Shown here is a 70-nucleotide RNA sequence from Oryctolagus cuniculus, a member of the family "Small nucleolar RNA U2-30".
RNA sequence: UAGCAAUGAUGAAAAGGUUUUACAAGUGACUUUUAUAACUAUGAGGUUUUCUACACUUGACCUGAGCUCA
Dot-bracket structure: .(((........(((((((........)))))))...............................)))..
Numbered sequence: 001u002a003g004c005a006a007u008g009a010u011g012a013a014a015a016g017g018u019u020u021u022a023c024a025a026g027u028g029a030c031u032u033u034u035a036u037a038a039c040u041a042u043g044a045g046g047u048u049u050u051c052u053a054c055a056c057u058u059g060a061c062c063u064g065a066g067c068u069c070a
Stems, first nucleotide, its partner, number of pairs: 002068003013034007

Its family is annotated with RNA processing and nucleolus in the Gene Ontology. For this family Rfam cites "Guide RNAs with 5' Caps and Novel Box C/D snoRNA-like Domains for Modification of snRNAs in Metazoa" (Tycowski et al., Curr Biol, 2004).